[Rfam]
This 80-nucleotide RNA sequence from Hipposideros armiger belongs to the Rfam family "Small nucleolar RNA U2-19". The match comes from Rfam's covariance-model search (90 bits). Taxonomically the source falls in Hipposideros (Eukaryota, Metazoa, Dipnotetrapodomorpha, Chiroptera). By type it is a C/D-box small nucleolar RNA. Gene Ontology terms of the family: nucleolus and RNA processing.
RNA sequence: GAUCAAUGAUGAAAAUAGCCAAAUCUGAGCAUUAGAAGGCCUUCCAGUCUACCUGAUGGGCAAUCUCUAUAGUUCUGAGA
Numbered sequence: 001g002a003u004c005a006a007u008g009a010u011g012a013a014a015a016u017a018g019c020c021a022a023a024u025c026u027g028a029g030c031a032u033u034a035g036a037a038g039g040c041c042u043u044c045c046a047g048u049c050u051a052c053c054u055g056a057u058g059g060g061c062a063a064u065c066u067c068u069a070u071a072g073u074u075c076u077g078a079g080a
Stems, first nucleotide, its partner, number of pairs: 030058004037050004